[Rfam]
Shown here is a 55-nucleotide sequence, a member of the family "chrB-b RNA". Rfam classes the family as a cis-regulatory element. It is one of the family's seed sequences.

RNA sequence: CCGGGAAAUCGCGGACUCCCGGCCUUCCCAAGACGGUGUCCCGUCCAAGUGCCGC
Numbered sequence: 001c002c003g004g005g006a007a008a009u010c011g012c013g014g015a016c017u018c019c020c021g022g023c024c025u026u027c028c029c030a031a032g033a034c035g036g037u038g039u040c041c042c043g044u045c046c047a048a049g050u051g052c053c054g055c
Stems, first nucleotide, its partner, number of pairs: 001022006011055004032045005